[Rfam]
RNA sequence: UUGAAUAUUUCGCUUAAUUUUCAGUUAAGAAAAGCGGGGGAACCACGCAUUCUAUGGGGUGAAUAACGGUGCUGAUAGCAAGUACCAUUUAGGGCAGAUUUCUCGCGGCCCGAACCCGACAGCUAACCUCGUAAGCGAACGUGAGAAAGGAG
Number, nucleotide and partner (000 for none) at each position: 001u000002u000003g000004a000005a000006u000007a000008u000009u000010u000011c137012g136013c135014u134015u000016a000017a000018u033019u032020u031021u030022c029023a000024g000025u000026u000027a000028a000029g022030a021031a020032a019033a018034g132035c131036g130037g129038g128039g127040g000041a000042a000043c000044c056045a055046c000047g000048c000049a000050u000051u000052c000053u000054a000055u045056g044057g117058g116059g115060u000061g000062a000063a000064u000065a089066a088067c000068g086069g085070u084071g083072c082073u081074g000075a000076u000077a000078g000079c000080a000081a073082g072083u071084a070085c069086c068087a000088u066089u065090u000091a000092g111093g110094g109095c108096a000097g000098a000099u000100u000101u000102c000103u000104c000105g000106c000107g000108g095109c094110c093111c092112g000113a000114a000115c059116c058117c057118g000119a000120c000121a000122g000123c000124u000125a000126a000127c039128c038129u037130c036131g035132u034133a000134a014135g013136c012137g011138a000139a000140c000141g000142u000143g000144a000145g000146a000147a000148a000149g000150g000151a000152g000

The record is a 152-nucleotide sequence from Paenibacillus pectinilyticus, which matches "c-di-AMP riboswitch aptamer (ydaO/yuaA leader)" in Rfam. A search with the family's covariance model found it, with a score of 90 bits. Taxonomically the source falls in Paenibacillus (Bacteria, Bacillati, Bacillota, Caryophanales).